mir-196 microRNA precursor family: a 74-nucleotide RNA sequence from Aquarana catesbeiana. Gene Ontology terms of the family: gene silencing by miRNA and RISC complex. On this family, see Lagos-Quintana et al., RNA 2003: "New microRNAs from mouse and human".
RNA sequence: CCUGUGAUUUAGGUAGUUUCAUGUUGUUGGGGCUCAAGCUUAUCUCGACAACAAGAAACUGCCUUAUUCACAUC
Numbered sequence: 001c002c003u004g005u006g007a008u009u010u011a012g013g014u015a016g017u018u019u020c021a022u023g024u025u026g027u028u029g030g031g032g033c034u035c036a037a038g039c040u041u042a043u044c045u046c047g048a049c050a051a052c053a054a055g056a057a058a059c060u061g062c063c064u065u066a067u068u069c070a071c072a073u074c
Base pairs, nucleotide, nucleotide: 003072004071005070006069007068009066011064012063013062014061015060016059017058018057019056022053023052024051025050026049027048028047029046030045031044